[Rfam]
RNA sequence: CGGUCUAUUGCCGGAAGAUAAACAAUUACAGUUAAAAGACUAUUUUAUCAAGCAAAUUAGAACGUAUAUGGACGGAAAAAUACCAGUUUCAACUGUCUCAAGCGAUUCAAGCGCUUCAAGUAAUACAGUUAAGCCAGUAGGCAGUGCGUGGAAGCGUAACAGCUACGGCACUUACUACAUGGAAGAGAAAGCAACGUUCACAAAUGGUAGUGAACCUAUAACUGUAAGAACAGUAGGACCAUUUAUAUCAUGUCC
Numbered sequence: 001c002g003g004u005c006u007a008u009u010g011c012c013g014g015a016a017g018a019u020a021a022a023c024a025a026u027u028a029c030a031g032u033u034a035a036a037a038g039a040c041u042a043u044u045u046u047a048u049c050a051a052g053c054a055a056a057u058u059a060g061a062a063c064g065u066a067u068a069u070g071g072a073c074g075g076a077a078a079a080a081u082a083c084c085a086g087u088u089u090c091a092a093c094u095g096u097c098u099c100a101a102g103c104g105a106u107u108c109a110a111g112c113g114c115u116u117c118a119a120g121u122a123a124u125a126c127a128g129u130u131a132a133g134c135c136a137g138u139a140g141g142c143a144g145u146g147c148g149u150g151g152a153a154g155c156g157u158a159a160c161a162g163c164u165a166c167g168g169c170a171c172u173u174a175c176u177a178c179a180u181g182g183a184a185g186a187g188a189a190a191g192c193a194a195c196g197u198u199c200a201c202a203a204a205u206g207g208u209a210g211u212g213a214a215c216c217u218a219u220a221a222c223u224g225u226a227a228g229a230a231c232a233g234u235a236g237g238a239c240c241a242u243u244u245a246u247a248u249c250a251u252g253u254c255c
Stems, first nucleotide, its partner, number of pairs: 002216003007211006019150002023146002026143001029140001031138003038130004045123004050116004064088001066087002069085003072081001094109002098105002168192002172188002175185002221253002224248003228244003233239002